The record is an 88-nucleotide sequence, which matches "skipping-rope RNA" in Rfam. Rfam classes the family as a small RNA. Rfam's curators put it in the seed alignment.

RNA sequence: AAGGAUAGAGGUUGAGAAUCUGUCACCAACGCGCCAUUUAGCUAGUAGGUCGAGAAAUGCAGGAGCCUCGACAGUCCUGUCUAUCCUU
Numbered sequence: 001a002a003g004g005a006u007a008g009a010g011g012u013u014g015a016g017a018a019u020c021u022g023u024c025a026c027c028a029a030c031g032c033g034c035c036a037u038u039u040a041g042c043u044a045g046u047a048g049g050u051c052g053a054g055a056a057a058u059g060c061a062g063g064a065g066c067c068u069c070g071a072c073a074g075u076c077c078u079g080u081c082u083a084u085c086c087u088u
Stems, first nucleotide, its partner, number of pairs: 001088008011030004020074005032054001033050003059080005